[Rfam]
The family of this 248-nucleotide RNA from Thiocapsa marina is "Group II catalytic intron D1-D4-6". NCBI's taxonomy places the organism under Bacteria, Pseudomonadati, Gammaproteobacteria, Thiocapsa, Thiocapsa marina. Rfam 15.1 lists 1,617 matches to the family in 661 species. From the family's description: Group II introns are found in rRNA, tRNA and mRNA of organelles in fungi, plants and protists, and also in mRNA in bacteria. The match comes from Rfam's covariance-model search (114 bits).
RNA sequence: GAAGCCUACCCGGGUAACCGUUAGCCAUGGGCCUGGAAUCGAGACGUGCAGUCAGUCCGGUAACGGACUGGUUGAUGCGUCGUCAGGAGAGGAGGCGAGGUGCAAGGGUAACAGGUGAAGCUGACCUUGAAGGUGUUGAGCUCCGAAAAGACCGACGUUGGGAGCGGCCGAUGGUUUAAAUGGGCCAGCAGGCAACAGCGCCGUAUGCGCCAUGCCGAGUACGCAGCGUCCCCCCGGAGUCGAGCCUC
Numbered sequence: 001g002a003a004g005c006c007u008a009c010c011c012g013g014g015u016a017a018c019c020g021u022u023a024g025c026c027a028u029g030g031g032c033c034u035g036g037a038a039u040c041g042a043g044a045c046g047u048g049c050a051g052u053c054a055g056u057c058c059g060g061u062a063a064c065g066g067a068c069u070g071g072u073u074g075a076u077g078c079g080u081c082g083u084c085a086g087g088a089g090a091g092g093a094g095g096c097g098a099g100g101u102g103c104a105a106g107g108g109u110a111a112c113a114g115g116u117g118a119a120g121c122u123g124a125c126c127u128u129g130a131a132g133g134u135g136u137u138g139a140g141c142u143c144c145g146a147a148a149a150g151a152c153c154g155a156c157g158u159u160g161g162g163a164g165c166g167g168c169c170g171a172u173g174g175u176u177u178a179a180a181u182g183g184g185c186c187a188g189c190a191g192g193c194a195a196c197a198g199c200g201c202c203g204u205a206u207g208c209g210c211c212a213u214g215c216c217g218a219g220u221a222c223g224c225a226g227c228g229u230c231c232c233c234c235c236g237g238a239g240u241c242g243a244g245c246c247u248c
Stems, first nucleotide, its partner, number of pairs: 010036005018030004022218001024216001039087002043084004047079002049074011137242002140240006160234003166230001167193003172187004198229004203224002206221003